[Rfam]
Nucleotides: 114
Stems, first nucleotide, its partner, number of pairs: 001114002004111002008107004013102004018097001020095002037077004050062001
Number, partner (000 for none) and nucleotide at each position: 001114g002113u003000u004111g005110g006000u007000u008107a009106u010105g011104g012000c013102g014101a015100c016099a017000u018097g019000c020095a021094u022000c023000c024000c025000g026000g027000g028000a029000c030000u031000a032000u033000g034000g035000c036000g037077g038076g039075u040074a041000a042000a043000a044000u045000c046000a047000u048000c049000g050062g051000a052000u053000g054000u055000c056000u057000u058000u059000g060000c061000g062050c063000a064000g065000u066000u067000u068000c069000a070000g071000g072000u073000g074040u075039g076038u077037u078000u079000g080000u081000a082000u083000u084000a085000g086000c087000u088000g089000u090000u091000c092000u093000c094021a095020u096000u097018c098000c099016u100015g101014u102013u103000c104011u105010c106009g107008u108000c109000a110005c111004c112000a113002a114001u

This 114-nucleotide RNA from Mizuhopecten yessoensis belongs to the Rfam family "Potassium channel RNA editing signal". The base pairs follow the family's consensus structure, which is taken from published work.